This 47-nucleotide RNA sequence belongs to the Rfam family "Mu-gpT-DE RNA".

RNA sequence: UCCUGACGGCAUUAUGCCGACACUAGCCAAGACAGGAGACUCCAAUG
Numbered sequence: 001u002c003c004u005g006a007c008g009g010c011a012u013u014a015u016g017c018c019g020a021c022a023c024u025a026g027c028c029a030a031g032a033c034a035g036g037a038g039a040c041u042c043c044a045a046u047g
Stems, first nucleotide, its partner, number of pairs: 002036004007019004

The family's consensus secondary structure is taken from published work.